The family of this 79-nucleotide sequence from Hermetia illucens is "drz-agam-1 ribozyme". Rfam 15.1 lists 10,507 matches to the family in 53 species.
[Rfam]
RNA sequence: UACUACUAAACCCUAUCUCCACCUCCACGUGGUGACCGCUGGGAGCUCUUCCUUGACGAAAAGCUGCAGACGGAGAAGG
Numbered sequence: 001u002a003c004u005a006c007u008a009a010a011c012c013c014u015a016u017c018u019c020c021a022c023c024u025c026c027a028c029g030u031g032g033u034g035a036c037c038g039c040u041g042g043g044a045g046c047u048c049u050u051c052c053u054u055g056a057c058g059a060a061a062a063g064c065u066g067c068a069g070a071c072g073g074a075g076a077a078g079g
Stems, first nucleotide, its partner, number of pairs: 012079003016075001018073002021033003044065004049060003

Description
The source organism's lineage runs through Eukaryota, Mandibulata, Aparaglossata, Hermetiinae and Hermetia. Its family is annotated with catalytic activity in the Gene Ontology.